[Rfam]
Nucleotides: 077
Base pairs, nucleotide, nucleotide: 008018009017010016011015039062040061041060042059043058044057045056046055047054
Number, partner (000 for none) and nucleotide at each position: 001000a002000g003000g004000a005000u006000g007000u008018g009017c010016c011015u012000u013000u014000c015011a016010g017009g018008c019000a020000u021000c022000c023000u024000c025000u026000c027000c028000u029000a030000a031000a032000g033000a034000c035000u036000a037000a038000c039062g040061g041060c042059c043058g044057g045056c046055u047054c048000c049000c050000u051000u052000u053000c054047g055046a056045g057044c058043c059042g060041g061040c062039c063000u064000u065000u066000u067000u068000u069000u070000g071000u072000u073000c074000c075000u076000g077000c
This 77-nucleotide RNA sequence from Allosphingosinicella flava belongs to the Rfam family "Makes More Granules Regulator RNA (mmgR)".
The match comes from Rfam's covariance-model search (54 bits).
By type it is a small RNA.
The base pairs follow the family's consensus structure.
The organism belongs to Allosphingosinicella, within Bacteria.